Shown here is a 160-nucleotide sequence from Bradyrhizobium diazoefficiens, a member of the family "Bradyrhizobiaceae sRNA BjrC80". The pairing is the family consensus, mapped onto this sequence. Lineage of the source: Bacteria > Pseudomonadota > Nitrobacteraceae > Bradyrhizobium > Bradyrhizobium diazoefficiens. By type it is a small RNA.

RNA sequence: CAAUGAAGGGUGUCGCCGGCAUCAGUCGCCCCAGCCGCCGGCGCCCUUCGGGGGAGCAGCGUAACAUUCGCUUCCCCAAUCUACCUUCCGGUGGAAUUACGCCCCCCUCCGUCGGAAGGCCUAGGGCGGUGAGGUCCCCCCAGCUUCACCGCCCGCCUUU
Numbered sequence: 001c002a003a004u005g006a007a008g009g010g011u012g013u014c015g016c017c018g019g020c021a022u023c024a025g026u027c028g029c030c031c032c033a034g035c036c037g038c039c040g041g042c043g044c045c046c047u048u049c050g051g052g053g054g055a056g057c058a059g060c061g062u063a064a065c066a067u068u069c070g071c072u073u074c075c076c077c078a079a080u081c082u083a084c085c086u087u088c089c090g091g092u093g094g095a096a097u098u099a100c101g102c103c104c105c106c107c108u109c110c111g112u113c114g115g116a117a118g119g120c121c122u123a124g125g126g127c128g129g130u131g132a133g134g135u136c137c138c139c140c141c142a143g144c145u146u147c148a149c150c151g152c153c154c155g156c157c158u159u160u
Stems, first nucleotide, its partner, number of pairs: 009045007017037004051076007059068001061067002084119002088115004093110003124154012